[Rfam]
RNA sequence: GAUGAAAUACUUUGACUGCUGUCCCGGUGAGCUUGACAAGGACAGAAGAGAUAGCGGAAGUUUUUUAGUACGUUUAGUACGUAGGCAUAAUUCCCCAUCUGAGGGUUGUGUAUCGUGCAUGCCAUCUACGGACGGUAGAUGGUAUCUUUAGACGAUUUCAUUUUCCUAUA
Numbered sequence: 001g002a003u004g005a006a007a008u009a010c011u012u013u014g015a016c017u018g019c020u021g022u023c024c025c026g027g028u029g030a031g032c033u034u035g036a037c038a039a040g041g042a043c044a045g046a047a048g049a050g051a052u053a054g055c056g057g058a059a060g061u062u063u064u065u066u067a068g069u070a071c072g073u074u075u076a077g078u079a080c081g082u083a084g085g086c087a088u089a090a091u092u093c094c095c096c097a098u099c100u101g102a103g104g105g106u107u108g109u110g111u112a113u114c115g116u117g118c119a120u121g122c123c124a125u126c127u128a129c130g131g132a133c134g135g136u137a138g139a140u141g142g143u144a145u146c147u148u149u150a151g152a153c154g155a156u157u158u159c160a161u162u163u164u165c166c167u168a169u170a
Base pairs, nucleotide, nucleotide: 020044021043022042023041024040051169052168053167054166067164070161072159077118078117079116080115081114086110087109088108089107090106091105093104094103096101120144121143122142123141124140125139